Overview:
tRNA: a 105-nucleotide RNA from Drosophila gunungcola. The family's RNA type in Rfam is transfer RNA. The organism belongs to elegans subgroup (in: flies), within Eukaryota. Pairs were carried over by alignment from the consensus structure, which is taken from published work. Transfer RNA (tRNA) molecules are approximately 80 nucleotides in length. The match comes from Rfam's covariance-model search (52 bits).
RNA sequence: GCUCCAGUGGCGCAAUUGGUUAGCGCACGGUACUUAUAAUCAGUAUUCAGUGUGUAUAUGAGAUGAGCUAUGCCGGGGUUGUGAGUUCGAGCCUCACCUGGAGCA
Numbered sequence: 001g002c003u004c005c006a007g008u009g010g011c012g013c014a015a016u017u018g019g020u021u022a023g024c025g026c027a028c029g030g031u032a033c034u035u036a037u038a039a040u041c042a043g044u045a046u047u048c049a050g051u052g053u054g055u056a057u058a059u060g061a062g063a064u065g066a067g068c069u070a071u072g073c074c075g076g077g078g079u080u081g082u083g084a085g086u087u088c089g090a091g092c093c094u095c096a097c098c099u100g101g102a103g104c105a
Base pairs, nucleotide, nucleotide: 001104002103003102004101005100006099007098010026011025012024013023028075029074030073031072032071081097082096083095084094085093
Dot-bracket structure: (((((((..((((.........)))).(((((......................................))))).....(((((.......)))))))))))).